[Rfam]
The record is a 94-nucleotide RNA sequence from Micromonospora sp. MW-13, which matches "Glycine riboswitch aptamer" in Rfam.
Gene Ontology term of the family: glycine biosynthetic process.
RNA sequence: GUGAACUCUGGAAAGCAGACGAUCCGUCGUCUCACCCACGGUGCAAACCGCCGCCCGGCGGUGAAGCUCUCAGGUCCAUGACAGAGCGGGAGGC
Numbered sequence: 001g002u003g004a005a006c007u008c009u010g011g012a013a014a015g016c017a018g019a020c021g022a023u024c025c026g027u028c029g030u031c032u033c034a035c036c037c038a039c040g041g042u043g044c045a046a047a048c049c050g051c052c053g054c055c056c057g058g059c060g061g062u063g064a065a066g067c068u069c070u071c072a073g074g075u076c077c078a079u080g081a082c083a084g085a086g087c088g089g090g091a092g093g094c
Stems, first nucleotide, its partner, number of pairs: 006086005017032004034075003038070001041069001043067001047062005